[Rfam]
RNA sequence: GCCUGUUUGUGUUCACCGUGUGAGCCUUGGUGUGCUGGUACUAUUAAGGCACGCGGUGAAUGCCAAGGGGA
Dot-bracket structure: ..((.(..((((((((...(((..((((((((.........))))))))..))).))))))))..).))..

The family of this 71-nucleotide sequence from Candidula unifasciata is "mir-124 microRNA precursor family". Pairs were carried over by alignment from the consensus structure, which was predicted with PFOLD. The match comes from Rfam's covariance-model search (55 bits). For this family Rfam cites "Computational identification of Drosophila microRNA genes" (Lai et al., Genome Biol, 2003). Gene Ontology terms of the family: RISC complex and miRNA-mediated post-transcriptional gene silencing. Taxonomically the source falls in Candidula (Eukaryota, Eumetazoa, Lophotrochozoa, Geomitridae).